[Rfam]
RNA sequence: UGGCUAGUUUUAUUACUAUUCCUUUUUAUAGUAGUAAAGCAAGAUUUUCAAAUUGCGAGAAUAUCCUAAAGACUAAGUAACCAAGUUUAGGUAGUAAUACACUAAAUGGCACAGGUAAUGACUCGUGGUAUGGUAAAAUCACUUAGUAUAGAAGUAAUGAAAAUGGAUGAUUUGCAGCCAAGUACCGGUGUUUAACUUAUAAUUUGUUAGAUUUAUAUACUGGUAUGCAGUUCAACGACUAUACGGAAAUCGGCUUCAAUAGCUUAAGACAUAGUCUAACCUAGUAUGAAAGUACUAA
Numbered sequence: 001u002g003g004c005u006a007g008u009u010u011u012a013u014u015a016c017u018a019u020u021c022c023u024u025u026u027u028a029u030a031g032u033a034g035u036a037a038a039g040c041a042a043g044a045u046u047u048u049c050a051a052a053u054u055g056c057g058a059g060a061a062u063a064u065c066c067u068a069a070a071g072a073c074u075a076a077g078u079a080a081c082c083a084a085g086u087u088u089a090g091g092u093a094g095u096a097a098u099a100c101a102c103u104a105a106a107u108g109g110c111a112c113a114g115g116u117a118a119u120g121a122c123u124c125g126u127g128g129u130a131u132g133g134u135a136a137a138a139u140c141a142c143u144u145a146g147u148a149u150a151g152a153a154g155u156a157a158u159g160a161a162a163a164u165g166g167a168u169g170a171u172u173u174g175c176a177g178c179c180a181a182g183u184a185c186c187g188g189u190g191u192u193u194a195a196c197u198u199a200u201a202a203u204u205u206g207u208u209a210g211a212u213u214u215a216u217a218u219a220c221u222g223g224u225a226u227g228c229a230g231u232u233c234a235a236c237g238a239c240u241a242u243a244c245g246g247a248a249a250u251c252g253g254c255u256u257c258a259a260u261a262g263c264u265u266a267a268g269a270c271a272u273a274g275u276c277u278a279a280c281c282u283a284g285u286a287u288g289a290a291a292g293u294a295c296u297a298a
Stems, first nucleotide, its partner, number of pairs: 006025002012019002031040002043251005049245001054176006064167003177231002182226004191217001193215003235277001237276005253263003283296005
The family of this 298-nucleotide sequence from Monosporascus ibericus is "Group I catalytic intron". Lineage of the source: Eukaryota > Fungi > sordariomyceta > Sordariomycetes > Monosporascus. Group I catalytic introns are large self-splicing ribozymes. They catalyse their own excision from mRNA, tRNA and rRNA precursors in a wide range of organisms. The core secondary structure consists of 9 paired regions (P1-P9). These fold to essentially two domains - the P4-P6 domain (formed from the stacking of P5, P4, P6 and P6a helices) and the P3-P9 domain (formed from the P8, P3, P7 and P9 helices).